Pseudomonas sRNA CrcZ: a 391-nucleotide RNA from Pseudomonas cremoricolorata. NCBI's taxonomy places the organism under Bacteria, Pseudomonadota, Gammaproteobacteria, Pseudomonadales, Pseudomonas. The match comes from Rfam's covariance-model search (328 bits).
RNA sequence: ACAAGAACAAUAAAAAGCACGGCAACUCAUAACAAGAACAAUACGAAACGGCUCACGCAUAACAAGAACAACACGGCGGAGGCGCAGCUAACUGAUUCUUUUGGAGACGCGUUGUGUGAGGGGCUUGCCCCGAAACCAGGCAGAGAACAACAAAAACUGCACUAAAAAGCAGCGCCUGAACUGGUUGGAUCAAUCGAUCAGCACGACUCAACGAUCAAAGCAAUCCGUUUGCUCUUUGCCCCUGAUGUAGGGGCCGCCUGCAGCGAAGCUUGCAGGCAGGGCACUCAACAAAAACAAGAAGCCCGUCAUAACAAUAACAAGAGCACGCAACGACUUGAUGGGGAGCUUAGGCUCCCCAUGUCGUUUCUCACCUCAGCGUCCCUCCGCGACU
Numbered sequence: 001a002c003a004a005g006a007a008c009a010a011u012a013a014a015a016a017g018c019a020c021g022g023c024a025a026c027u028c029a030u031a032a033c034a035a036g037a038a039c040a041a042u043a044c045g046a047a048a049c050g051g052c053u054c055a056c057g058c059a060u061a062a063c064a065a066g067a068a069c070a071a072c073a074c075g076g077c078g079g080a081g082g083c084g085c086a087g088c089u090a091a092c093u094g095a096u097u098c099u100u101u102u103g104g105a106g107a108c109g110c111g112u113u114g115u116g117u118g119a120g121g122g123g124c125u126u127g128c129c130c131c132g133a134a135a136c137c138a139g140g141c142a143g144a145g146a147a148c149a150a151c152a153a154a155a156a157c158u159g160c161a162c163u164a165a166a167a168a169g170c171a172g173c174g175c176c177u178g179a180a181c182u183g184g185u186u187g188g189a190u191c192a193a194u195c196g197a198u199c200a201g202c203a204c205g206a207c208u209c210a211a212c213g214a215u216c217a218a219a220g221c222a223a224u225c226c227g228u229u230u231g232c233u234c235u236u237u238g239c240c241c242c243u244g245a246u247g248u249a250g251g252g253g254c255c256g257c258c259u260g261c262a263g264c265g266a267a268g269c270u271u272g273c274a275g276g277c278a279g280g281g282c283a284c285u286c287a288a289c290a291a292a293a294a295c296a297a298g299a300a301g302c303c304c305g306u307c308a309u310a311a312c313a314a315u316a317a318c319a320a321g322a323g324c325a326c327g328c329a330a331c332g333a334c335u336u337g338a339u340g341g342g343g344a345g346c347u348u349a350g351g352c353u354c355c356c357c358a359u360g361u362c363g364u365u366u367c368u369c370a371c372c373u374c375a376g377c378g379u380c381c382c383u384c385c386g387c388g389a390c391u
Stems, first nucleotide, its partner, number of pairs: 049084002052081003099220005113213003134186006157172004238254005274373003278368001279304004323364002338361001339358008